[Rfam]
RNA sequence: AGCCUAAGUCCUGCACAAAGGAUAUGGCAAUAUAAGAAUCUCACACUAAUAAAGACGGUCUUCCGACCAGCACUUAUUAGUGUGAGUUUAUACCCGAAAGGGUGUAAGGCAUUCCGAAAGGAUUGUC
Numbered sequence: 001a002g003c004c005u006a007a008g009u010c011c012u013g014c015a016c017a018a019a020g021g022a023u024a025u026g027g028c029a030a031u032a033u034a035a036g037a038a039u040c041u042c043a044c045a046c047u048a049a050u051a052a053a054g055a056c057g058g059u060c061u062u063c064c065g066a067c068c069a070g071c072a073c074u075u076a077u078u079a080g081u082g083u084g085a086g087u088u089u090a091u092a093c094c095c096g097a098a099a100g101g102g103u104g105u106a107a108g109g110c111a112u113u114c115c116g117a118a119a120g121g122a123u124u125g126u127c
Stems, first nucleotide, its partner, number of pairs: 002028003009022004040086011054071001057068003088107008108127004113122003
Rfam assigns this 127-nucleotide RNA to the family "LOOT RNA". The sequence is in the family's curated seed alignment.